[Rfam]
RNA: Plastid-rps12 3UTR RNA
RNA sequence: AGUCCCAAUUAACGCAAAUCCAAUCUUGUAAUUUAAGAUGAGAAAAAAUUCCCCAUUGGUAACAAAUGUUUAUCCAUUAAGCAGGGAAAAUCCUAU
Numbered sequence: 001a002g003u004c005c006c007a008a009u010u011a012a013c014g015c016a017a018a019u020c021c022a023a024u025c026u027u028g029u030a031a032u033u034u035a036a037g038a039u040g041a042g043a044a045a046a047a048a049u050u051c052c053c054c055a056u057u058g059g060u061a062a063c064a065a066a067u068g069u070u071u072a073u074c075c076a077u078u079a080a081g082c083a084g085g086g087a088a089a090a091u092c093c094u095a096u
Stems, first nucleotide, its partner, number of pairs: 009023002051086003055077002058074005